[Rfam]
RNA sequence: CGCCAAGUCCGAGGCUCCGGUGGCUGCCGGGGCCUGGUGCAACAAGGG
Numbered sequence: 001c002g003c004c005a006a007g008u009c010c011g012a013g014g015c016u017c018c019g020g021u022g023g024c025u026g027c028c029g030g031g032g033c034c035u036g037g038u039g040c041a042a043c044a045a046g047g048g
Base pairs, nucleotide, nucleotide: 013034014033015032016031017030018029019028020027
About this RNA
raiA-hairpin RNA: a 48-nucleotide RNA from Streptomyces montanisoli. The organism belongs to Streptomyces, within Bacteria. A search with the family's covariance model found it, with a score of 54 bits.